[Rfam]
RNA sequence: GGCGAUAAACGCCGGCGAUUAAUAGGCGCAGCGGACCCGGGGGCAGUACCCGGCGGCUCCACCACCAACCGUCCGUUCCACGGACGGGUGAUGACGGGGCCGAACCAGGAUCGACGUGUGUUGAAAAGCGCUGGCUUUUGCUCGGAAUGGGACCACCGUGACGGCCCGUACACAAGUGCCAACGAUAACGAGGCGCUCGCGAUUGCCGCGUAA
Numbered sequence: 001g002g003c004g005a006u007a008a009a010c011g012c013c014g015g016c017g018a019u020u021a022a023u024a025g026g027c028g029c030a031g032c033g034g035a036c037c038c039g040g041g042g043g044c045a046g047u048a049c050c051c052g053g054c055g056g057c058u059c060c061a062c063c064a065c066c067a068a069c070c071g072u073c074c075g076u077u078c079c080a081c082g083g084a085c086g087g088g089u090g091a092u093g094a095c096g097g098g099g100c101c102g103a104a105c106c107a108g109g110a111u112c113g114a115c116g117u118g119u120g121u122u123g124a125a126a127a128g129c130g131c132u133g134g135c136u137u138u139u140g141c142u143c144g145g146a147a148u149g150g151g152a153c154c155a156c157c158g159u160g161a162c163g164g165c166c167c168g169u170a171c172a173c174a175a176g177u178g179c180c181a182a183c184g185a186u187a188a189c190g191a192g193g194c195g196c197u198c199g200c201g202a203u204u205g206c207c208g209c210g211u212a213a
Stems, first nucleotide, its partner, number of pairs: 001142005014132004027120003031117003037053005054102007143158003
This 213-nucleotide RNA from Sphingomonas lycopersici belongs to the Rfam family "permuted transfer-messenger RNA". The base pairs follow the family's consensus structure, which is taken from published work. Gene Ontology term of the family: RNA catabolic process. A search with the family's covariance model found it, with a score of 123 bits. Rfam's curators write: Bacterial tmRNA, also known as 10Sa RNA or SsrA, is named for its dual tRNA and mRNA-like properties. Its role is to liberate the mRNA from a stalled ribosome. To accomplish this part of the tmRNA is used as a reading frame that ends in a translation stop signal. The broken mRNA is replaced in the ribosome by the tmRNA and translation of the tmRNA leads to addition of a proteolysis tag to the incomplete protein enabling recognition by a protease.